[Rfam]
RNA sequence: AGAGAGGUGGAGGGACUGGCCCUAUGAAACCUCAGCAGCAGAUUCUUUUUUGAAUCCUGUGCUAAAUCCUGCAAGCAAAUUGCUUGAAAGAUAAGUU
Numbered sequence: 001a002g003a004g005a006g007g008u009g010g011a012g013g014g015a016c017u018g019g020c021c022c023u024a025u026g027a028a029a030c031c032u033c034a035g036c037a038g039c040a041g042a043u044u045c046u047u048u049u050u051u052g053a054a055u056c057c058u059g060u061g062c063u064a065a066a067u068c069c070u071g072c073a074a075g076c077a078a079a080u081u082g083c084u085u086g087a088a089a090g091a092u093a094a095g096u097u
Stems, first nucleotide, its partner, number of pairs: 004033005012022003016071001018069002034063004039059002041055001043053002067089001072086006
RNA: SAM riboswitch aptamer (S box leader)
Organism: Heyndrickxia oleronia